[Rfam]
Nucleotides: 072
Stems, first nucleotide, its partner, number of pairs: 004067001006065002009062002011059008020050003024047009
Number, partner (000 for none) and nucleotide at each position: 001000a002000g003000g004067c005000g006065c007064u008000g009062g010061a011059u012058g013057a014056g015055u016054g017053u018052g019000a020050g021049g022048c023000a024047u025046c026045g027044g028043a029042u030041u031040g032039a033000u034000u035000c036000c037000a038000c039032u040031c041030a042029a043028u044027c045026c046025g047024a048022g049021c050020c051000c052018c053017a054016c055015a056014u057013u058012c059011a060000a061010u062009c063000a064007g065006g066000g067004g068000u069000u070000c071000g072000u

The family of this 72-nucleotide RNA sequence from Nicotiana attenuata is "MIR6151 microRNA precursor family". Lineage of the source: Eukaryota > Viridiplantae > Mesangiospermae > Nicotianoideae > Nicotiana.